This 101-nucleotide sequence from Paenibacillus sp. J2TS4 belongs to the Rfam family "Purine riboswitch aptamer". A search with the family's covariance model found it, with a score of 72 bits. Rfam's curators write: Riboswitches are metabolite binding domains within certain messenger RNAs that serve as precision sensors for their corresponding targets. The base pairs follow the family's consensus structure, which is taken from published work.
RNA sequence: GGUAUUGAAUAACGCUUUUUUCGUAUAAUCUUGGGAAUCGGCUCAAGAGUUUCUACGAGGUCACCGUAAAUGAUCUGGCUACGAAAAUAGUGGAGUAGCAA
Numbered sequence: 001g002g003u004a005u006u007g008a009a010u011a012a013c014g015c016u017u018u019u020u021u022c023g024u025a026u027a028a029u030c031u032u033g034g035g036a037a038u039c040g041g042c043u044c045a046a047g048a049g050u051u052u053c054u055a056c057g058a059g060g061u062c063a064c065c066g067u068a069a070a071u072g073a074u075c076u077g078g079c080u081a082c083g084a085a086a087a088u089a090g091u092g093g094a095g096u097a098g099c100a101a
Stems, first nucleotide, its partner, number of pairs: 018087008029048007058076006